The record is a 384-nucleotide RNA sequence from Arcticibacter pallidicorallinus, which matches "Bacterial RNase P class A" in Rfam.
The match comes from Rfam's covariance-model search (246 bits).
It is annotated as a ribozyme.
Taxonomically the source falls in Arcticibacter (Bacteria, Pseudomonadati, Sphingobacteriales, Sphingobacteriaceae).
RNA sequence: UUGUAACGGUUGUUCCAUCGCCGGGUAUUUAUAUCAGGAGGAAAGUCCGGGCAACACAGAGCGUCUUGCUUCCUAACGGGAAGGGCACAUCUUUGAUGUGUACGGAAAGUGCCACAGAAAACAAACUACCCGGAUUGCUUGCGGUUCGGGAAAAGGUGAAAACGUGAGGUAAGAGCUCACGGCUUUGUAUGGCAACAUGCAUCGCGGUAAACCCCAGGAGUUGAAAGACCAAAUAUGCUGGCGACUGAAGGCUGCUCGUCUUAGUUUUGCUUCGCAAAUGCGCCAGCGGGUAGGUCGUUUGAUCAUGUCAGCGAUGACAUGGCUAGAUAAAUGAUGGAAGCCCUCUUUGGGUGACAGAACCCGGCUUACAGACCUUAUAAAAGA
Number, nucleotide and partner (000 for none) at each position: 001u380002u379003g378004u377005a376006a375007c000008g374009g373010u372011u371012g369013u339014u338015c337016c336017a335018u334019c333020g000021c038022c037023g000024g035025g034026u033027a032028u000029u000030u000031a000032u027033a026034u025035c024036a000037g022038g021039a000040g000041g000042a000043a367044a366045g365046u000047c364048c363049g362050g361051g360052c223053a222054a221055c220056a000057c000058a000059g000060a000061g272062c000063g000064u219065c218066u217067u216068g215069c083070u082071u081072c080073c079074u000075a000076a000077c000078g000079g073080g072081a071082a070083g069084g103085g101086c100087a099088c098089a097090u096091c000092u000093u000094u000095g000096a090097u089098g088099u087100g086101u085102a000103c084104g214105g213106a000107a000108a000109g212110u211111g208112c207113c206114a000115c000116a000117g000118a000119a000120a000121a000122c000123a000124a000125a000126c155127u154128a000129c150130c149131c148132g147133g146134a145135u144136u143137g000138c000139u000140u000141g000142c000143g136144g135145u134146u133147c132148g131149g130150g129151a000152a000153a000154a127155g126156g000157u000158g000159a000160a000161a000162a000163c181164g180165u179166g178167a177168g176169g000170u000171a000172a000173g000174a000175g000176c168177u167178c166179a165180c164181g163182g000183c000184u000185u000186u201187g200188u199189a198190u197191g196192g000193c000194a000195a000196c191197a190198u189199g188200c187201a186202u000203c000204g000205c000206g113207g112208u111209a000210a000211a110212c109213c105214c104215c068216a067217g066218g065219a064220g055221u054222u053223g052224a000225a000226a000227g296228a295229c294230c293231a000232a000233a000234u000235a000236u000237g287238c286239u285240g284241g283242c282243g000244a000245c000246u000247g000248a000249a000250g000251g000252c000253u000254g000255c000256u000257c000258g000259u000260c000261u000262u000263a000264g000265u000266u278267u277268u276269g275270c000271u000272u061273c000274g000275c269276a268277a267278a266279u000280g000281c000282g242283c241284c240285a239286g238287c237288g000289g000290g000291u000292a000293g230294g229295u228296c227297g000298u000299u000300u000301g000302a000303u322304c321305a320306u319307g318308u317309c316310a315311g000312c000313g000314a000315u310316g309317a308318c307319a306320u305321g304322g303323c000324u000325a000326g000327a000328u000329a000330a000331a000332u000333g019334a018335u017336g016337g015338a014339a013340g000341c000342c000343c000344u000345c000346u000347u000348u000349g000350g000351g000352u000353g000354a000355c000356a000357g000358a000359a000360c051361c050362c049363g048364g047365c045366u044367u043368a000369c012370a000371g011372a010373c009374c008375u006376u005377a004378u003379a002380a001381a000382a000383g000384a000